Rfam assigns this 312-nucleotide RNA sequence from Mycolicibacterium chubuense to the family "Mycobacterium smegmatis small RNA 1". Taxonomically the source falls in Mycolicibacterium chubuense (Bacteria, Bacillati, Mycobacteriaceae, Mycobacterium). Gene Ontology term of the family: RNA polymerase binding. Rfam's curators write: Mycobacterium smegmatis small RNA 1 is highly expressed during stationary phase of growth. Ms1 RNA directly interacts with RNA polymerase (RNAP), but in a different way than 6S, which is present in other bacteria.
[Rfam]
RNA sequence: ACGGAAGCCGGGUGAGGCCAAGACCGAACCGGAAGAGAAGGUUCGGCCUCCCGACCUCGGCUCCUAGCACGGGUCCCGGAACCCACGCGGAGCACACGCCGCGGAAUAGGCAAAAGCGUUGCGGGCCUGCGUUAUUGCGAAAAUCGAACGACCAUGUCAGCCCUUUGGGUGGGGUUGGUGUCGUAGCGUUUCGCAGUCACGCCGAGGCCAACCCACGCAACCCACAACGCACGCUUGGUAACCGGAGCCCCGUGCUAGCGGGCGGCGAACCGCAGUUGUCUCGGCAACUCGGGUCGCCGCCCGUUUUGCCGU
Number, nucleotide and partner (000 for none) at each position: 001a000002c000003g064004g063005a000006a062007g061008c060009c059010g058011g057012g056013u000014g000015a000016g052017g051018c000019c000020a000021a049022g048023a000024c000025c045026g044027a043028a042029c041030c040031g000032g000033a000034a000035g000036a000037g000038a000039a000040g030041g029042u028043u027044c026045g025046g000047c000048c022049u021050c000051c017052c016053g000054a000055c000056c012057u011058c010059g009060g008061c007062u006063c004064c003065u257066a256067g255068c254069a253070c252071g251072g250073g249074u000075c000076c245077c244078g243079g242080a000081a000082c000083c238084c237085a236086c000087g234088c233089g232090g000091a000092g230093c229094a000095c000096a000097c000098g111099c110100c109101g000102c000103g000104g000105a000106a000107u000108a000109g100110g099111c098112a000113a000114a000115a000116g000117c000118g221119u220120u219121g218122c217123g216124g209125g208126c207127c206128u205129g202130c201131g200132u199133u000134a000135u196136u195137g194138c193139g192140a191141a000142a000143a000144u000145c188146g187147a000148a184149c183150g182151a181152c180153c000154a000155u000156g000157u000158c177159a176160g175161c174162c173163c172164u171165u000166u000167g000168g000169g000170u000171g164172g163173g162174g161175u160176u159177g158178g000179u000180g152181u151182c150183g149184u148185a000186g000187c146188g145189u000190u000191u140192c139193g138194c137195a136196g135197u000198c000199a132200c131201g130202c129203c000204g000205a128206g127207g126208c125209c124210a000211a000212c000213c000214c000215a000216c123217g122218c121219a120220a119221c118222c000223c000224a000225c000226a000227a000228c000229g093230c092231a000232c089233g088234c087235u000236u085237g084238g083239u000240a000241a000242c079243c078244g077245g076246a000247g000248c000249c073250c072251c071252g070253u069254g068255c067256u066257a065258g304259c303260g302261g301262g300263c299264g298265g297266c296267g295268a294269a000270c292271c291272g290273c000274a000275g000276u000277u000278g000279u000280c000281u000282c000283g000284g000285c000286a000287a000288c000289u000290c272291g271292g270293g000294u268295c267296g266297c265298c264299g263300c262301c261302c260303g259304u258305u000306u000307u000308g000309c000310c000311g000312u000